Rfam assigns this 83-nucleotide sequence from Salmonella enterica to the family "Nucleoid-associated noncoding RNA 4 (CssrE)". A reference for the family is Qian et al. (2015), "A New Noncoding RNA Arranges Bacterial Chromosome Organization", MBio. Rfam 15.1 lists 870 matches to the family in 32 species. From the family's description: In E. coli small RNA transcribed from repeated extragenic palindromic element (REP325) called nucleoid-associated ncRNA 4 (nRNA4) collaborates HU protein in condensing the DNA. The secondary structure but not the sequence of the RNA is important in nucleoid condensation. Also identified in Shigella as CssrE. Lineage of the source: Bacteria > Pseudomonadati > Salmonella > Salmonella enterica subsp. enterica > Salmonella enterica subsp. enterica serovar Typhimurium.
RNA sequence: GGCCGGAUAAGGCGUUUCCGCCGCCAUCCGGCAUUGGCGCCACAUGAUUGCCGGAUGGCGACGCUACCGCAUCUUAUCCGGCC
Numbered sequence: 001g002g003c004c005g006g007a008u009a010a011g012g013c014g015u016u017u018c019c020g021c022c023g024c025c026a027u028c029c030g031g032c033a034u035u036g037g038c039g040c041c042a043c044a045u046g047a048u049u050g051c052c053g054g055a056u057g058g059c060g061a062c063g064c065u066a067c068c069g070c071a072u073c074u075u076a077u078c079c080g081g082c083c
Stems, first nucleotide, its partner, number of pairs: 002032007011022004050082008060073002063070002